[Rfam]
RNA sequence: AGGUGGCCUCGCGACUGGCGCAUCGAGGUGGAGUUCACCACCGGGGAGCGAAGAGUACGGCACCGCGCGCCUGGGUGUCCUCU
Number, nucleotide and partner (000 for none) at each position: 001a000002g000003g000004u000005g000006g000007c053008c000009u051010c050011g049012c048013g000014a000015c045016u044017g071018g070019c069020g068021c067022a000023u000024c000025g000026a000027g000028g041029u040030g039031g038032a000033g000034u000035u000036c000037a000038c031039c030040a029041c028042c000043g000044g016045g015046g000047a000048g012049c011050g010051a009052a000053g007054a000055g000056u000057a000058c000059g000060g078061c077062a076063c075064c074065g000066c000067g021068c020069g019070c018071c017072u000073g000074g064075g063076u062077g061078u060079c000080c000081u000082c000083u000